Rfam assigns this 171-nucleotide RNA sequence from Aegilops tauschii to the family "MIR2118 microRNA precursor family". On this family, see Xue et al., Nucleic Acids Res 2009: "Characterization and expression profiles of miRNAs in rice seeds". Taxonomically the source falls in Aegilops tauschii (Eukaryota, Spermatophyta, Mesangiospermae, Triticodae). Pairs were carried over by alignment from the consensus structure, which was predicted with RNAalifold.

RNA sequence: GCCUGGAAGAGGAAGAAUAGAUGGUCUUAGAGUAGUGGGAAUGGGAACAUAGAGGAAACCCUAACUUGCUCGGUUUUCAUCUCUAGUGUCAGAGGUUAGAAUUGAGUAUGGUGUUUUCCGAUGCUUCCCAUUCCUAUUAUUCUAAAGCACUCAUUCCUCUUUCUUUUUUGG
Numbered sequence: 001g002c003c004u005g006g007a008a009g010a011g012g013a014a015g016a017a018u019a020g021a022u023g024g025u026c027u028u029a030g031a032g033u034a035g036u037g038g039g040a041a042u043g044g045g046a047a048c049a050u051a052g053a054g055g056a057a058a059c060c061c062u063a064a065c066u067u068g069c070u071c072g073g074u075u076u077u078c079a080u081c082u083c084u085a086g087u088g089u090c091a092g093a094g095g096u097u098a099g100a101a102u103u104g105a106g107u108a109u110g111g112u113g114u115u116u117u118c119c120g121a122u123g124c125u126u127c128c129c130a131u132u133c134c135u136a137u138u139a140u141u142c143u144a145a146a147g148c149a150c151u152c153a154u155u156c157c158u159c160u161u162u163c164u165u166u167u168u169u170g171g
Stems, first nucleotide, its partner, number of pairs: 009162005015156003020152002025147001027145008036136011048123003052119001054118005060113001
Dot-bracket structure: ........(((((.(((..((...(.((((((((.(((((((((((.(((.(.(((((.(....................................................))))))).)))..))))))))))).)))))))).)...)).))).))))).........